[Rfam]
RNA sequence: CGAGUGAUCCGUGGUAAAGGAACUAGGCAAAUUGACGCUGUAACUUCGGGAUAAGGCGUACCACAGUAAUGUGGUCUCAGUAAAAUGGUACAACCAACUGUUUAACAAAAACACAGGGCCCUGCAAAAUCGAAAGAUGACGUAUAGAGCCUGAUACCUGCCCGGUGCUGGAAGGUUAAGGAAGGAUGUUCGGAGUAAUCCAAAGCUUCUGACUGAAGCCCCAGUAAACGGCGGCCGUAACUAUAACGGUCCUAAGGUAGCGAAAUUCCUUGUCGGGUAAGUUCCGACCUGCACGAAUGGUCUAAUGAGUUGUACACUGUCUCUACCACGAGCUCG
Dot-bracket structure: ((((.....(((((((.(((..............(((((....(....).....)))))((((((....))))))(...).......(((((((((..(((.........)))..((((.((((...(((....)))...)..))).))))...(((.(((..(((((((..(((...((..(((.((..((......))...)).)))..))...))))))))..)))))((((((.......))))))(...).....(.........((((((.....))))))).........)))....)).)))))))....))).)))))))..))))
The record is a 335-nucleotide part of an RNA from Chitinophaga flava, which matches "Bacterial large subunit ribosomal RNA" in Rfam. It scores 2730 bits against the family's covariance model. NCBI's taxonomy places the organism under Bacteria, Pseudomonadati, Bacteroidota, Chitinophagaceae, Chitinophaga.